[Rfam]
RNA sequence: AUGUCAGUCAAUGGUUGACUGAUCGCUAUUCAGGUAAUUUGUGCUUUGGUUACUUGUCGGUAUCUCUUUUUUU
Numbered sequence: 001a002u003g004u005c006a007g008u009c010a011a012u013g014g015u016u017g018a019c020u021g022a023u024c025g026c027u028a029u030u031c032a033g034g035u036a037a038u039u040u041g042u043g044c045u046u047u048g049g050u051u052a053c054u055u056g057u058c059g060g061u062a063u064c065u066c067u068u069u070u071u072u073u
Stems, first nucleotide, its partner, number of pairs: 004022008025061003031056009
The family of this 73-nucleotide RNA sequence from Chlorobium phaeobacteroides is "Chlorobi-RRM RNA".
Rfam's curators put it in the seed alignment.
Pairs were carried over by alignment from the consensus structure, which is taken from published work.
Lineage of the source: Bacteria > Chlorobiota > Chlorobiia > Chlorobiaceae > Chlorobium phaeobacteroides.